[Rfam]
RNA sequence: ACGCCGCCCCAACGGCUUCCUGACGGGGCAGGUAAGACACAUCGGAGCA
Numbered sequence: 001a002c003g004c005c006g007c008c009c010c011a012a013c014g015g016c017u018u019c020c021u022g023a024c025g026g027g028g029c030a031g032g033u034a035a036g037a038c039a040c041a042u043c044g045g046a047g048c049a
Stems, first nucleotide, its partner, number of pairs: 004032002006029005013022002015048003019045002